Overview: Cyanobacterial functional RNA 1: a 70-nucleotide RNA from Pseudanabaena cinerea. The literature on the family includes a 2007 paper in BMC Genomics by Voss et al., "A motif-based search in bacterial genomes identifies the ortholog of the small RNA Yfr1 in all lineages of cyanobacteria". The family's RNA type in Rfam is small RNA.

[Rfam]
RNA sequence: GCGGAGACGUAAGUUUCCGUUCACUCCUCACACCAUUUUCCGCCUGAGCUUAUGAGCAGCAAGGGCGGUU
Numbered sequence: 001g002c003g004g005a006g007a008c009g010u011a012a013g014u015u016u017c018c019g020u021u022c023a024c025u026c027c028u029c030a031c032a033c034c035a036u037u038u039u040c041c042g043c044c045u046g047a048g049c050u051u052a053u054g055a056g057c058a059g060c061a062a063g064g065g066c067g068g069u070u
Stems, first nucleotide, its partner, number of pairs: 001020008041067005